[Rfam]
RNA sequence: CGGGGGGUGGGGGGGUUCCCUCAGGUUGGAUUGCAAGACAGUGCAGGCCAGGCUGAGGGACCUCACCAGUGCACA
Number, nucleotide and partner (000 for none) at each position: 001c000002g000003g000004g072005g000006g070007g000008u068009g067010g066011g000012g064013g063014g062015g061016u060017u000018c059019c058020c057021u056022c055023a054024g053025g000026u051027u000028g049029g048030a000031u046032u045033g044034c043035a042036a000037g000038a000039c000040a000041g000042u035043g034044c033045a032046g031047g000048c029049c028050a000051g026052g000053c024054u023055g022056a021057g020058g019059g018060a016061c015062c014063u013064c012065a000066c010067c009068a008069g000070u006071g000072c004073a000074c000075a000
RNA: mir-9193 microRNA precursor family
Organism: Myotis myotis